[Rfam]
RNA sequence: GUUGGCUAUGGCGAUAUGGUGCCCACAACCAUCGGAGGAAAGAUUGUCGGAUCCCUCUGUGCCAUCGCUGGCGUCUUGACCAUCGCCCUCCCAGUGCCCGUCAUCGUCUCCAAC
Numbered sequence: 001g002u003u004g005g006c007u008a009u010g011g012c013g014a015u016a017u018g019g020u021g022c023c024c025a026c027a028a029c030c031a032u033c034g035g036a037g038g039a040a041a042g043a044u045u046g047u048c049g050g051a052u053c054c055c056u057c058u059g060u061g062c063c064a065u066c067g068c069u070g071g072c073g074u075c076u077u078g079a080c081c082a083u084c085g086c087c088c089u090c091c092c093a094g095u096g097c098c099c100g101u102c103a104u105c106g107u108c109u110c111c112a113a114c
Base pairs, nucleotide, nucleotide: 001114002113004111005110008107009106010105011104013102014101015100018097021095022094037077038076040074049063050062
A member of the RNA family "Potassium channel RNA editing signal" from Sinocyclocheilus grahami, 114 nucleotides long. Gene Ontology term of the family: adenosine to inosine editing. The family's RNA type in Rfam is cis-regulatory element. The match comes from Rfam's covariance-model search (100 bits). Rfam 15.1 lists 14,095 matches to the family in 1,000 species. Rfam describes the family as follows. This family represents a group of sequences related to the human potassium channel Kv1.1 hairpin element which directs the efficient modification of an adenosine to inosine by an adenosine deaminase acting on RNA (ADAR). Pairs were carried over by alignment from the consensus structure, which is taken from published work.